This 70-nucleotide RNA sequence from Ectothiorhodospiraceae bacterium BW-2 belongs to the Rfam family "int-alpA RNA".
[Rfam]
RNA sequence: ACCACAGCUAGGUUAGCUCCCGAAAACAGAGUAUUCCCUGCUCUGCUGCUGUGGUGCCUUUUUUGCAGGG
Numbered sequence: 001a002c003c004a005c006a007g008c009u010a011g012g013u014u015a016g017c018u019c020c021c022g023a024a025a026a027c028a029g030a031g032u033a034u035u036c037c038c039u040g041c042u043c044u045g046c047u048g049c050u051g052u053g054g055u056g057c058c059u060u061u062u063u064u065g066c067a068g069g070g
Base pairs, nucleotide, nucleotide: 001055002054003053004052005051006050007049008048011021012020027045028044029043030042031041035070036069037068
Rfam describes the family as follows. Acidobacteria (1 example), Planctomycetes (1 example), Proteobacteria.